Shown here is a 121-nucleotide RNA sequence from Mesorhizobium japonicum, a member of the family "Alphaproteobacterial ar14". About the family: Smr14C2 was renamed NfeR1 (Nodule Formation Efficiency RNA) highly expressed in salt stress and during the symbiotic interaction on legume roots. It is one of the family's seed sequences. The organism belongs to Mesorhizobium japonicum, within Bacteria.
RNA sequence: AGAUUUCGUCAAAGCCGACCUCCUCCCCGGCAAUGACGAAUAGGCCCAACCUUCACCUCCUCCCGAGGGUUGGCCAACCAAACGGCGCCCGCCGCACCUCCUCCCGCGGCGGGCGUUGUUU
Numbered sequence: 001a002g003a004u005u006u007c008g009u010c011a012a013a014g015c016c017g018a019c020c021u022c023c024u025c026c027c028c029g030g031c032a033a034u035g036a037c038g039a040a041u042a043g044g045c046c047c048a049a050c051c052u053u054c055a056c057c058u059c060c061u062c063c064c065g066a067g068g069g070u071u072g073g074c075c076a077a078c079c080a081a082a083c084g085g086c087g088c089c090c091g092c093c094g095c096a097c098c099u100c101c102u103c104c105c106g107c108g109g110c111g112g113g114c115g116u117u118g119u120u121u
Stems, first nucleotide, its partner, number of pairs: 007038003011034001014031004043075004048070001050068003085116011